RNA sequence: UUAUGCCUGGCUCCCUGUAUGCCACAAGCAGAAGCCAACCCCUUGUUGCUUGGUUUUUGUGGGUGGCGUACGAGGAGCCAAGCAUAC
Numbered sequence: 001u002u003a004u005g006c007c008u009g010g011c012u013c014c015c016u017g018u019a020u021g022c023c024a025c026a027a028g029c030a031g032a033a034g035c036c037a038a039c040c041c042c043u044u045g046u047u048g049c050u051u052g053g054u055u056u057u058u059g060u061g062g063g064u065g066g067c068g069u070a071c072g073a074g075g076a077g078c079c080a081a082g083c084a085u086a087c
Stems, first nucleotide, its partner, number of pairs: 002086005008080007016072009028060002
RNA: mir-160 microRNA precursor family
Organism: Rosa chinensis